[Rfam]
RNA sequence: GGGGGCGUUUUAGACUCGCUCGGGGGAGCAAUGGUAAGAGUUGCGUGUCGAGAUCCCGCUUGACCUCGUUAAACAGCGGACAAACAAUAACUGACAAAACAAAUUACGCUUUAGCAGCUUAAGCUGCUACAUCCUGCCUUCUGUGUCUGCGGUGAAGAGUUCAGGGUGUCAAAACAGCAGGCUAUCCUGUGAGACCACCGUCUGAGGUCAAUCAGGUAAACGAAUCAGACUGGCUUCAAAGGAAUCCCGCUUUCAGGAGUCCAGCGAAGCGAGAAGUAAAAUGAGAGCUACACACGUAGAUACUUUUGGUAUUGUCUUUCGAUACAGGGGUGCAAGUCCCCUCGCCUCCACCA
Dot-bracket structure: (((((((............((((((((....((.(((((((..((((([[[[...(((((....]]]]......)))))................................(((((((....)))))))((((((..(((.((.[[[[[[..))))).....))))))........]]]]]]...((((...(......[..[.....)...))))...........]..].(((((...((..(((.[[[[[..)))..))...)))))............].]]]]...))))).....))))))).))...))))))))...(((((.......))))))))))))....
Shown here is a 353-nucleotide sequence from Dehalobacter sp. 12DCB1, a member of the family "transfer-messenger RNA". A reference for the family is Williams (2002), "The tmRNA Website: invasion by an intron", Nucleic Acids Res. Pairs were carried over by alignment from the consensus structure, which is taken from published work. Taxonomically the source falls in Dehalobacter (Bacteria, Bacillati, Bacillota, Clostridia).